[Rfam]
RNA sequence: CCGUGCUAGACGGGGAGGUAGCGGUGCCCUGUACCCGCAAUCCGCUAUAGCGGGGUCGAACUCCCGUCCGAGGCCCCCGCGGUCGGGGCCAGCACCGGAUACGGGGUGUUGAAGGCCGGGUCCCGCGCAACGCGGACUCGUGAACCCCGCCAGGCCCGGAAGGGAGCAACGGUAAGCGAGCCACCGCGUGUGCCGCGGGGGAGCCGGGCCGGAGCCCACGGUUCGGCCAGCGCCCGGGUGCGGGUGUCGACGACGGGUGCACGG
Numbered sequence: 001c002c003g004u005g006c007u008a009g010a011c012g013g014g015g016a017g018g019u020a021g022c023g024g025u026g027c028c029c030u031g032u033a034c035c036c037g038c039a040a041u042c043c044g045c046u047a048u049a050g051c052g053g054g055g056u057c058g059a060a061c062u063c064c065c066g067u068c069c070g071a072g073g074c075c076c077c078c079g080c081g082g083u084c085g086g087g088g089c090c091a092g093c094a095c096c097g098g099a100u101a102c103g104g105g106g107u108g109u110u111g112a113a114g115g116c117c118g119g120g121u122c123c124c125g126c127g128c129a130a131c132g133c134g135g136a137c138u139c140g141u142g143a144a145c146c147c148c149g150c151c152a153g154g155c156c157c158g159g160a161a162g163g164g165a166g167c168a169a170c171g172g173u174a175a176g177c178g179a180g181c182c183a184c185c186g187c188g189u190g191u192g193c194c195g196c197g198g199g200g201g202a203g204c205c206g207g208g209c210c211g212g213a214g215c216c217c218a219c220g221g222u223u224c225g226g227c228c229a230g231c232g233c234c235c236g237g238g239u240g241c242g243g244g245u246g247u248c249g250a251c252g253a254c255g256g257g258u259g260c261a262c263g264g
Stems, first nucleotide, its partner, number of pairs: 001264006009057003012030004017025001019023001034054005063257006072248003076244001078242004083237005092228001095226006103219001105216003114210004119205003122199006128190002131188005137180005147172003155164003